[Rfam]
RNA sequence: UAAUGAAGGCAGCAUGGUUGUGUGCACGGAAAUUAAAAUUUUAGGUCAACAUGUCUGCUCUCUUUGAUGAAAUUAAUGAUUAGAGGGCCUGGUUGCGACCUACAGUU
Numbered sequence: 001u002a003a004u005g006a007a008g009g010c011a012g013c014a015u016g017g018u019u020g021u022g023u024g025c026a027c028g029g030a031a032a033u034u035a036a037a038a039u040u041u042u043a044g045g046u047c048a049a050c051a052u053g054u055c056u057g058c059u060c061u062c063u064u065u066g067a068u069g070a071a072a073u074u075a076a077u078g079a080u081u082a083g084a085g086g087g088c089c090u091g092g093u094u095g096c097g098a099c100c101u102a103c104a105g106u107u
Stems, first nucleotide, its partner, number of pairs: 012025004043090005053080003057074001059072001
RNA: Small nucleolar RNA snoR100